[Rfam]
RNA sequence: CCUUACAGGGGCAAACCCGCCGAAAGGCGGGGACGCAAAGUCACCGGUCUAACAGGCUGCGGCCUCAUGACGGCGGGAUCGCUAAGG
Numbered sequence: 001c002c003u004u005a006c007a008g009g010g011g012c013a014a015a016c017c018c019g020c021c022g023a024a025a026g027g028c029g030g031g032g033a034c035g036c037a038a039a040g041u042c043a044c045c046g047g048u049c050u051a052a053c054a055g056g057c058u059g060c061g062g063c064c065u066c067a068u069g070a071c072g073g074c075g076g077g078a079u080c081g082c083u084a085a086g087g
Stems, first nucleotide, its partner, number of pairs: 001087001003084001011036002016031006034073001040079003044076003047071003